[Rfam]
A member of the RNA family "Eukaryotic large subunit ribosomal RNA" from Hemiselmis andersenii, 420 nucleotides of a longer RNA.

RNA sequence: UGAUCUCAAAUCGGGUAGGAACACCCGCUGAACUUAAGCAUAUCAUUAAGCGGAGGAAAAGAAACUAACUAGGAUUCCCGUAGUAGCGGCGAGCGAAAAGGGAGAAGCUCAAGAUAAAAUCUGAAAGCGUCGUUUUCAGAUAUUUAAUCUAUAAAGGUGCGAUUGAAUUUUUCUUAAAUCAAAGUCUCCUGGAAGGGAGCACCAGAGAGGGUGAUAGUCCCGUUAAUGAUUUUUUGAAAUUAUUCAGAGACGCACGCCUGAAGAGUCGAGUUGCUUGGGAGUGCAGCUCAAAUUGGGUGGUAUACUUCAUCCAAAGCUAAAUACGGGCGAGAGACCGAUAGCGAACAAGUACCGUGAGGGAAAGAUGAAAAGAACUUUGAAAAGAGAGUGAAAUAGUGCUUGAAACCGUUGGGAGGAAAG
Numbered sequence: 001u002g003a004u005c006u007c008a009a010a011u012c013g014g015g016u017a018g019g020a021a022c023a024c025c026c027g028c029u030g031a032a033c034u035u036a037a038g039c040a041u042a043u044c045a046u047u048a049a050g051c052g053g054a055g056g057a058a059a060a061g062a063a064a065c066u067a068a069c070u071a072g073g074a075u076u077c078c079c080g081u082a083g084u085a086g087c088g089g090c091g092a093g094c095g096a097a098a099a100g101g102g103a104g105a106a107g108c109u110c111a112a113g114a115u116a117a118a119a120u121c122u123g124a125a126a127g128c129g130u131c132g133u134u135u136u137c138a139g140a141u142a143u144u145u146a147a148u149c150u151a152u153a154a155a156g157g158u159g160c161g162a163u164u165g166a167a168u169u170u171u172u173c174u175u176a177a178a179u180c181a182a183a184g185u186c187u188c189c190u191g192g193a194a195g196g197g198a199g200c201a202c203c204a205g206a207g208a209g210g211g212u213g214a215u216a217g218u219c220c221c222g223u224u225a226a227u228g229a230u231u232u233u234u235u236g237a238a239a240u241u242a243u244u245c246a247g248a249g250a251c252g253c254a255c256g257c258c259u260g261a262a263g264a265g266u267c268g269a270g271u272u273g274c275u276u277g278g279g280a281g282u283g284c285a286g287c288u289c290a291a292a293u294u295g296g297g298u299g300g301u302a303u304a305c306u307u308c309a310u311c312c313a314a315a316g317c318u319a320a321a322u323a324c325g326g327g328c329g330a331g332a333g334a335c336c337g338a339u340a341g342c343g344a345a346c347a348a349g350u351a352c353c354g355u356g357a358g359g360g361a362a363a364g365a366u367g368a369a370a371a372g373a374a375c376u377u378u379g380a381a382a383a384g385a386g387a388g389u390g391a392a393a394u395a396g397u398g399c400u401u402g403a404a405a406c407c408g409u410u411g412g413g414a415g416g417a418a419a420g
Base pairs, nucleotide, nucleotide: 024055025053026052027051028050029049035042036041065072066071076103077102078101079100086094087093106318107317108316109315113148115146116145117144118143119141120140121139122138123137124136125135126134154259157255158254159253163250164249166243170239171238172237176232177231178230179229180228184200186199187198188197189196203207210220211219268289269288270287271286272285273284274283295312296311297310298309299308352359353358375386376385377384378383
Overview: The sequence is in the family's curated seed alignment. Gene Ontology terms of the family: structural constituent of ribosome and ribosome.